[Rfam]
RNA sequence: AUGCCCUGUGAUUAUACAAAGACGCGUUAUUCUGAGGAACACACCUGCUACUGGUCUUUCCUCUACUGUCUACUCUGCCUUUAAUCUCCGCCAUCUUUCCUUUCCUCCCUUCACUUGUUCUACUCUUUUGGUCAAACUGGUAGCAGGUCCGCUGACUGCGAUUAUGAGAUAUGAGGGCAU
Numbered sequence: 001a002u003g004c005c006c007u008g009u010g011a012u013u014a015u016a017c018a019a020a021g022a023c024g025c026g027u028u029a030u031u032c033u034g035a036g037g038a039a040c041a042c043a044c045c046u047g048c049u050a051c052u053g054g055u056c057u058u059u060c061c062u063c064u065a066c067u068g069u070c071u072a073c074u075c076u077g078c079c080u081u082u083a084a085u086c087u088c089c090g091c092c093a094u095c096u097u098u099c100c101u102u103u104c105c106u107c108c109c110u111u112c113a114c115u116u117g118u119u120c121u122a123c124u125c126u127u128u129u130g131g132u133c134a135a136a137c138u139g140g141u142a143g144c145a146g147g148u149c150c151g152c153u154g155a156c157u158g159c160g161a162u163u164a165u166g167a168g169a170u171a172u173g174a175g176g177g178c179a180u
Base pairs, nucleotide, nucleotide: 001180002179003178004177005176006175035101036100037099038098
The family of this 180-nucleotide RNA sequence from Stegastes partitus is "Small nucleolar RNA SNORD97". The organism belongs to Stegastes, within Eukaryota. Rfam classes the family as a C/D-box small nucleolar RNA. The family has 20 seed sequences and 639 matches in Rfam 15.1. A reference for the family is Vitali et al. (2003), "Identification of 13 novel human modification guide RNAs", Nucleic Acids Res.